Notes
A member of the RNA family "Bacterial large signal recognition particle RNA" from a Syntrophomonadaceae bacterium, 265 nucleotides long. The source organism's lineage runs through Bacteria, Bacillati, Bacillota, Clostridia and Syntrophomonadaceae. The signal recognition particle (SRP) is a universally conserved ribonucleoprotein involved in the co-translational targeting of proteins to membranes. A search with the family's covariance model found it, with a score of 206 bits. Rfam classes the family as a non-coding RNA gene.
[Rfam]
Nucleotides: 265
Base pairs, nucleotide, nucleotide: 001265002264003263004262005261006260009057010056011055012030013029014028015027017025019023034054035053036052037051038050063258064257065256066255067254068253072249073248074247075246078242079241080240081239082238084236085235086234087233091232092231095226096225097224098223099222100221103219104218106215107214114210115209116208117207118206119205120204121203122199123198124197125196126195127194128190129189131188132187133186134185135184136181138179139178140177141176147172148171149170150169155164156163157162
Number, partner (000 for none) and nucleotide at each position: 001265c002264c003263g004262u005261g006260c007000u008000a009057g010056a011055u012030g013029g014028g015027g016000a017025g018000g019023u020000a021000g022000c023019g024000g025017u026000g027015c028014c029013c030012u031000g032000c033000a034054c035053c036052c037051g038050c039000a040000a041000a042000c043000c044000g045000c046000u047000g048000u049000a050038g051037c052036g053035g054034g055011g056010u057009u058000g059000a060000a061000u062000u063258c064257c065256c066255a067254c068253c069000c070000c071000a072249g073248g074247g075246c076000u077000u078242g079241g080240u081239u082238u083000g084236u085235g086234g087233g088000g089000a090000c091232c092231g093000g094000c095226c096225g097224g098223u099222a100221u101000a102000a103219g104218u105000a106215g107214c108000g109000a110000g111000g112000a113000a114210a115209g116208u117207u118206g119205g120204g121203u122199c123198c124197u125196g126195c127194g128190c129189a130000a131188c132187a133186g134185g135184a136181a137000c138179u139178c140177a141176u142000g143000a144000a145000c146000c147172c148171c149170g150169u151000c152000a153000g154000g155164u156163c157162c158000g159000g160000a161000a162157g163156g164155a165000a166000g167000c168000a169150g170149c171148g172147g173000u174000a175000a176141g177140u178139g179138a180000a181136u182000c183000c184135u185134c186133u187132u188131g189129u190128g191000u192000g193000c194127c195126g196125c197124g198123g199122g200000g201000g202000c203121g204120c205119c206118u207117g208116a209115u210114u211000a212000g213000a214107g215106c216000c217000g218104g219103c220000u221100g222099u223098a224097c225096c226095g227000g228000u229000a230000u231092c232091g233087c234086c235085c236084g237000g238082a239081a240080g241079u242078c243000a244000u245000u246075g247074u248073u249072c250000a251000a252000a253068g254067g255066u256065g257064g258063g259000u260006g261005c262004a263003c264002g265001g